[Rfam]
This 112-nucleotide sequence from Saccharothrix variisporea belongs to the Rfam family "TPP riboswitch aptamer (THI element)".
NCBI's taxonomy places the organism under Bacteria, Actinomycetota, Pseudonocardiales, Pseudonocardiaceae, Saccharothrix.
For this family Rfam cites "Thermodynamic analysis of ligand binding and ligand binding-induced tertiary structure formation by the thiamine pyrophosphate riboswitch" (Kulshina et al., RNA, 2010).
About the family: Vitamin B(1) in its active form thiamin pyrophosphate (TPP) is an essential coenzyme that is synthesised by coupling of pyrimidine and thiazole moieties in bacteria.
RNA sequence: CGUGGUCCGCACGGGAGCCUGGAGAUCACCGGGCUGAGAGGGAGCGUGGUUCGCUCCGACCGUCGAACCUGAUCCGGGUCAUGCCGGCGCAGGGAGCGUGAGUGCCUUGGCA
Numbered sequence: 001c002g003u004g005g006u007c008c009g010c011a012c013g014g015g016a017g018c019c020u021g022g023a024g025a026u027c028a029c030c031g032g033g034c035u036g037a038g039a040g041g042g043a044g045c046g047u048g049g050u051u052c053g054c055u056c057c058g059a060c061c062g063u064c065g066a067a068c069c070u071g072a073u074c075c076g077g078g079u080c081a082u083g084c085c086g087g088c089g090c091a092g093g094g095a096g097c098g099u100g101a102g103u104g105c106c107u108u109g110g111c112a
Base pairs, nucleotide, nucleotide: 006100008098009097010096011063012062013061014060017034018033019032020031021030041057042056043055044054045053068093069092070091071090074087075086076085077084